[Rfam]
RNA sequence: CUGCAUUCUUAAACCCCCCUGGCAGCUCGCUUAGUAGCUUCCAGGAUAAGAGUGAAUGCCAGAGAAAAAUGUUGAUUAAUCCAAAAUGCAGAGCUCUUCUCUUGUAGCUCUUCAUUAUUUCACAUCUUCAACAUUU
Dot-bracket structure: ..((((.(((.......(((((.(((..........))).)))))....)))...))))...(((....((..((.........((((.((.((....(....)..)).)).))))........))..))...)))
This 136-nucleotide RNA sequence from Merops nubicus belongs to the Rfam family "Small nucleolar RNA SNORA14". Rfam's curators write: ACA14 is a member of the H/ACA class of snoRNA that guide the sites of modification of uridines to pseudouridines. The base pairs follow the family's consensus structure, which was predicted with RNAfold. By type it is an H/ACA-box small nucleolar RNA.